[Rfam]
The record is a 97-nucleotide RNA from Streptomyces venezuelae, which matches "che1 RNA" in Rfam.
Pairs were carried over by alignment from the consensus structure, which is taken from published work.
RNA sequence: UGGACAGGGGGGUUCCCGCUCUCACCGAACGGGGCCUGUCCGAAAACAGGCCGCGUGACAAGGCGCGGCCGUGGUUGUCGCUCGGGGGUGAUCGCCG
Numbered sequence: 001u002g003g004a005c006a007g008g009g010g011g012g013u014u015c016c017c018g019c020u021c022u023c024a025c026c027g028a029a030c031g032g033g034g035c036c037u038g039u040c041c042g043a044a045a046a047c048a049g050g051c052c053g054c055g056u057g058a059c060a061a062g063g064c065g066c067g068g069c070c071g072u073g074g075u076u077g078u079c080g081c082u083c084g085g086g087g088g089u090g091a092u093c094g095c096c097g
Stems, first nucleotide, its partner, number of pairs: 001042008014034005020028001049070008
NCBI's taxonomy places the organism under Bacteria, Bacillati, Actinomycetes, Kitasatosporales, Streptomyces venezuelae. Rfam classes the family as a small RNA.